Description: Small nucleolar RNA R12: an 80-nucleotide RNA from Dendrobium nobile. On this family, see Chen et al., Nucleic Acids Res 2003: "The high diversity of snoRNAs in plants: identification and comparative study of 120 snoRNA genes from Oryza sativa". The organism belongs to Dendrobium, within Eukaryota. snoR12 is a C/D box small nucleolar RNA, which acts as a methylation guide for 25S ribosomal RNA in plants. snoR12 has been alternatively named snoZ44 in Arabidopsis and snoZ131 in rice. The family has 9 seed sequences and 992 matches in Rfam 15.1.
RNA sequence: AUGCUGGAUGAUGUAAGAAAUCAGACGGAUUCCCAUUGAUUUCUAUAAAAUGAUAUCUUAACCAGCUACUUCUGACACAU
Numbered sequence: 001a002u003g004c005u006g007g008a009u010g011a012u013g014u015a016a017g018a019a020a021u022c023a024g025a026c027g028g029a030u031u032c033c034c035a036u037u038g039a040u041u042u043c044u045a046u047a048a049a050a051u052g053a054u055a056u057c058u059u060a061a062c063c064a065g066c067u068a069c070u071u072c073u074g075a076c077a078c079a080u
Stems, first nucleotide, its partner, number of pairs: 001080003005077002